[Rfam]
Nucleotides: 065
Base pairs, nucleotide, nucleotide: 001065002064003063004062005061014051015050016049017048018047019046020045021044022043023042029039030038031037
Number, partner (000 for none) and nucleotide at each position: 001065g002064c003063c004062a005061g006000c007000u008000a009000a010000u011000g012000a013000c014051g015050g016049c017048u018047u019046g020045u021044u022043u023042g024000u025000c026000a027000a028000g029039c030038c031037a032000c033000a034000c035000a036000g037031u038030g039029g040000g041000g042023u043022a044021a045020a046019c047018a048017a049016g050015u051014c052000u053000g054000a055000u056000g057000a058000a059000u060000u061005c062004u063003g064002g065001c